[Rfam]
RNA: tRNA
RNA sequence: GCCCCCAUAGCUCAGGGGAUAGAGCGUCUGCCUCCGGAGCAGAAGGCCGCAGGUUCGAAUCCUGCUGGGGGCA
Numbered sequence: 001g002c003c004c005c006c007a008u009a010g011c012u013c014a015g016g017g018g019a020u021a022g023a024g025c026g027u028c029u030g031c032c033u034c035c036g037g038a039g040c041a042g043a044a045g046g047c048c049g050c051a052g053g054u055u056c057g058a059a060u061c062c063u064g065c066u067g068g069g070g071g072c073a
Stems, first nucleotide, its partner, number of pairs: 001072007010025004027043005049065005